[Rfam]
The family of this 301-nucleotide RNA sequence from Triticum aestivum is "Plant signal recognition particle RNA". Clan: SRP clan. The match comes from Rfam's covariance-model search (209 bits).

RNA sequence: GCCGAGUUCAGUAGCAUGAGCUUGUAACCCGAGCGGGGGCUUUAGGGUGGUGUGGAUGUUGCCGUAGCGCUGUGGGCCUGGUCCGGUCGUGCUCCUGCUGGCCCGCCCGUUCCAAGUUGGUAGUGGACCGCUGGGGCCCUGUGCGAAAGCUGGGCCUCACGGGCCGUAAUGUUGGCAGGCACAGCGUUAGGCUGGCUUCACAGAGCAGCGAGAACUGCCCGCUUCCAACGGUGGAAGGAUAACGGGCCGCUGCACAACUGGGCCACUUGGGCCUCUCAGCCUACUCCAGACCACCACUUCU
Numbered sequence: 001g002c003c004g005a006g007u008u009c010a011g012u013a014g015c016a017u018g019a020g021c022u023u024g025u026a027a028c029c030c031g032a033g034c035g036g037g038g039g040c041u042u043u044a045g046g047g048u049g050g051u052g053u054g055g056a057u058g059u060u061g062c063c064g065u066a067g068c069g070c071u072g073u074g075g076g077c078c079u080g081g082u083c084c085g086g087u088c089g090u091g092c093u094c095c096u097g098c099u100g101g102c103c104c105g106c107c108c109g110u111u112c113c114a115a116g117u118u119g120g121u122a123g124u125g126g127a128c129c130g131c132u133g134g135g136g137c138c139c140u141g142u143g144c145g146a147a148a149g150c151u152g153g154g155c156c157u158c159a160c161g162g163g164c165c166g167u168a169a170u171g172u173u174g175g176c177a178g179g180c181a182c183a184g185c186g187u188u189a190g191g192c193u194g195g196c197u198u199c200a201c202a203g204a205g206c207a208g209c210g211a212g213a214a215c216u217g218c219c220c221g222c223u224u225c226c227a228a229c230g231g232u233g234g235a236a237g238g239a240u241a242a243c244g245g246g247c248c249g250c251u252g253c254a255c256a257a258c259u260g261g262g263c264c265a266c267u268u269g270g271g272c273c274u275c276u277c278a279g280c281c282u283a284c285u286c287c288a289g290a291c292c293a294c295c296a297c298u299u300c301u
Stems, first nucleotide, its partner, number of pairs: 001040003004023007028037003045299008054291001057288002064284004070279003074275003078271002080264008089255003093252001099249007107238002110236005116229005122223003125165002128162003132159008143150002174219005185210003192203003
By type it is a non-coding RNA gene.